[Rfam]
RNA sequence: GCUGACUCACUUUGCACCCAACUGCAGUCGCAGGUGGGUGCAUUUUCUGUCUGCUACAGAAACACUUUAGGGUUCUAUAACUACCUUGACCUGUCAAGGGUGAUACAGCUGUCCGGGGAUGCAGGA
Numbered sequence: 001g002c003u004g005a006c007u008c009a010c011u012u013u014g015c016a017c018c019c020a021a022c023u024g025c026a027g028u029c030g031c032a033g034g035u036g037g038g039u040g041c042a043u044u045u046u047c048u049g050u051c052u053g054c055u056a057c058a059g060a061a062a063c064a065c066u067u068u069a070g071g072g073u074u075c076u077a078u079a080a081c082u083a084c085c086u087u088g089a090c091c092u093g094u095c096a097a098g099g100g101u102g103a104u105a106c107a108g109c110u111g112u113c114c115g116g117g118g119a120u121g122c123a124g125g126a
Base pairs, nucleotide, nucleotide: 001054002053004051005050006049014041015040016039017038018037019036020035022033023032024031066117067116068115070113071112075108076107078105079104082102083101084100085099086098
Description:
A member of the RNA family "Small nucleolar RNA SNORA77" from Phyllostomus discolor, 126 nucleotides long. Rfam 15.1 lists 843 matches to the family in 607 species. By type it is an H/ACA-box small nucleolar RNA. Rfam's curators write: ACA63 (SNORA77) is a member of the H/ACA class of snoRNAs that guide the sites of modification of uridines to pseudouridines. This snoRNA was identified by computational screening and its expression in mouse experimentally verified by Northern blot and primer extension analysis. The source organism's lineage runs through Eukaryota, Eumetazoa, Eutheria, Phyllostomidae and Phyllostomus.